Overview
The record is a 75-nucleotide RNA from Clarias magur, which matches "Small nucleolar RNA SNORD99" in Rfam. The organism belongs to Clarias, within Eukaryota. A reference for the family is Galardi et al. (2002), "Purified box C/D snoRNPs are able to reproduce site-specific 2'-O-methylation of target RNA in vitro", Mol Cell Biol. Pairs were carried over by alignment from the consensus structure, which was predicted with RNAalifold. It scores 61 bits against the family's covariance model. The family's RNA type in Rfam is C/D-box small nucleolar RNA. The family has 23 seed sequences and 673 matches in Rfam 15.1.
RNA sequence: GCUGAUCAAGGAUGACCCCUUUUUAAUUAGUGACUGCUGGAUGAAGCUUGCGGAUAUGGGACUGAGAUCUAAGAU
Numbered sequence: 001g002c003u004g005a006u007c008a009a010g011g012a013u014g015a016c017c018c019c020u021u022u023u024u025a026a027u028u029a030g031u032g033a034c035u036g037c038u039g040g041a042u043g044a045a046g047c048u049u050g051c052g053g054a055u056a057u058g059g060g061a062c063u064g065a066g067a068u069c070u071a072a073g074a075u
Stems, first nucleotide, its partner, number of pairs: 002073002004069002